Rfam assigns this 153-nucleotide RNA sequence from Ziziphus jujuba to the family "small nucleolar RNA snoR137". The literature on the family includes a 2009 paper in Nucleic Acids Res by Chen and Wu, "Mining small RNA sequencing data: a new approach to identify small nucleolar RNAs in Arabidopsis". A search with the family's covariance model found it, with a score of 103 bits.
RNA sequence: GUUGCUUCAUAAUGGUGAAUUCCCUCUUAUACCAAGUGGGGGUGUUCAAGUUUCCCGAAGCAUACAUGGAUAGAUUCUUUGUCUAUGCCAGUAUUAAACAGCAAUGUGCAUUUUUUGCUUUUUGCACUUUGUUACCUGUCUCCUGGUACAUCU
Numbered sequence: 001g002u003u004g005c006u007u008c009a010u011a012a013u014g015g016u017g018a019a020u021u022c023c024c025u026c027u028u029a030u031a032c033c034a035a036g037u038g039g040g041g042g043u044g045u046u047c048a049a050g051u052u053u054c055c056c057g058a059a060g061c062a063u064a065c066a067u068g069g070a071u072a073g074a075u076u077c078u079u080u081g082u083c084u085a086u087g088c089c090a091g092u093a094u095u096a097a098a099c100a101g102c103a104a105u106g107u108g109c110a111u112u113u114u115u116u117g118c119u120u121u122u123u124g125c126a127c128u129u130u131g132u133u134a135c136c137u138g139u140c141u142c143c144u145g146g147u148a149c150a151u152c153u
Stems, first nucleotide, its partner, number of pairs: 003062006016048005021042004087147005093141001100133003104129001106127003